[Rfam]
RNA sequence: CGCGGGUGUUCUCUCGAUCUGUGGACAUGGAACCUUGAAGAAGUCCCAUCAUCCCAGGUCAGAGGGCAUCCGCACCCUCAUGUCCAGGCUCUGGACCGGCUAUUGAUCGGUGGAUCAAG
Numbered sequence: 001c002g003c004g005g006g007u008g009u010u011c012u013c014u015c016g017a018u019c020u021g022u023g024g025a026c027a028u029g030g031a032a033c034c035u036u037g038a039a040g041a042a043g044u045c046c047c048a049u050c051a052u053c054c055c056a057g058g059u060c061a062g063a064g065g066g067c068a069u070c071c072g073c074a075c076c077c078u079c080a081u082g083u084c085c086a087g088g089c090u091c092u093g094g095a096c097c098g099g100c101u102a103u104u105g106a107u108c109g110g111u112g113g114a115u116c117a118a119g
Stems, first nucleotide, its partner, number of pairs: 002073012016060002019057003023053001027049002030046001032044002102115003106111001

Rfam assigns this 119-nucleotide RNA sequence from Streptomyces ferrugineus to the family "Actinobacteria sRNA Ms_IGR-7". It scores 53 bits against the family's covariance model. It is annotated as a small RNA. The source organism's lineage runs through Bacteria, Bacillati, Actinomycetota, Actinomycetes and Streptomyces.